[Rfam]
Nucleotides: 074
Stems, first nucleotide, its partner, number of pairs: 002073003008026004
Number, partner (000 for none) and nucleotide at each position: 001000u002073u003072g004071c005000c006000a007000u008026g009025a010024u011023g012000g013000u014000u015000a016000c017000a018000u019000u020000u021000u022000u023011c024010g025009u026008c027000a028000g029000c030000a031000g032000c033000a034000u035000u036000u037000c038000a039000c040000g041000c042000a043000c044000a045000g046000u047000g048000a049000a050000u051000g052000u053000u054000g055000a056000c057000a058000u059000u060000g061000a062000a063000a064000u065000a066000u067000c068000u069000g070000a071004g072003c073002g074000a
The family of this 74-nucleotide RNA sequence from Pantherophis guttatus is "Small nucleolar RNA SNORD56". The literature on the family includes a 2002 paper in Mol Cell Biol by Galardi et al., "Purified box C/D snoRNPs are able to reproduce site-specific 2'-O-methylation of target RNA in vitro". Gene Ontology terms of the family: RNA processing and nucleolus.